[Rfam]
RNA sequence: AGGUUAAUGCUAAUCGUGAUAGGGGUUGUCAAAUAUAAGACGCCUAACAUGUUAGCAUUAGUUU
Numbered sequence: 001a002g003g004u005u006a007a008u009g010c011u012a013a014u015c016g017u018g019a020u021a022g023g024g025g026u027u028g029u030c031a032a033a034u035a036u037a038a039g040a041c042g043c044c045u046a047a048c049a050u051g052u053u054a055g056c057a058u059u060a061g062u063u064u
Stems, first nucleotide, its partner, number of pairs: 004061011020046004025041003

Rfam assigns this 64-nucleotide RNA sequence from Labrus bergylta to the family "mir-155 microRNA precursor family". It scores 64 bits against the family's covariance model.